[Rfam]
RNA sequence: CGCGCGGCUGGUCGGGCGAACAACGGCAGCGGCCACGGGAUACCCCGGGACUGUGGGAUAGUCUUGAGAACCUGGGCAAGGUGGCGAAGUUAGUGCCUUGAGACGAACGGCUGACGGGC
Numbered sequence: 001c002g003c004g005c006g007g008c009u010g011g012u013c014g015g016g017c018g019a020a021c022a023a024c025g026g027c028a029g030c031g032g033c034c035a036c037g038g039g040a041u042a043c044c045c046c047g048g049g050a051c052u053g054u055g056g057g058a059u060a061g062u063c064u065u066g067a068g069a070a071c072c073u074g075g076g077c078a079a080g081g082u083g084g085c086g087a088a089g090u091u092a093g094u095g096c097c098u099u100g101a102g103a104c105g106a107a108c109g110g111c112u113g114a115c116g117g118g119c
Stems, first nucleotide, its partner, number of pairs: 001039001003037002006034005026054004045075005061104004077100006089115006
Dot-bracket structure: (.((.(((((...............[[[[))))).)).).....(((((.]]]]......{{{{......))))).((((((......[[[[[[))))))}}}}.....]]]]]]....
This 119-nucleotide RNA from Caballeronia sp. SBC1 belongs to the Rfam family "Betaproteobacteria-1 RNA". The family's consensus secondary structure is taken from published work.